[Rfam]
RNA sequence: UUAGAGGAUUUGAAGACUUCAGCUUGCAUACUUGGAGAAUUUGAAGGCUUCAACUUGCAUACUUGGAAGAUUUGAAGACUUCAAUU
Number, nucleotide and partner (000 for none) at each position: 001u084002u083003a000004g081005a080006g079007g000008a000009u076010u075011u074012g073013a072014a071015g000016a000017c000018u067019u066020c065021a064022g000023c000024u000025u059026g058027c057028a056029u000030a000031c000032u053033u052034g051035g050036a049037g048038a000039a000040u000041u000042u000043g000044a000045a000046g000047g000048c037049u036050u035051c034052a033053a032054c000055u000056u028057g027058c026059a025060u000061a000062c000063u000064u021065g020066g019067a018068a000069g000070a000071u014072u013073u012074g011075a010076a009077g000078a000079c006080u005081u004082c000083a002084a001085u000086u000

The family of this 86-nucleotide sequence from Solanum tuberosum is "MIR8024 microRNA precursor family". It scores 94 bits against the family's covariance model. The family's consensus secondary structure was predicted with RNAalifold. Rfam 15.1 lists 661 matches to the family in 8 species. The source organism's lineage runs through Eukaryota, Tracheophyta, Euphyllophyta, Spermatophyta and Solanum.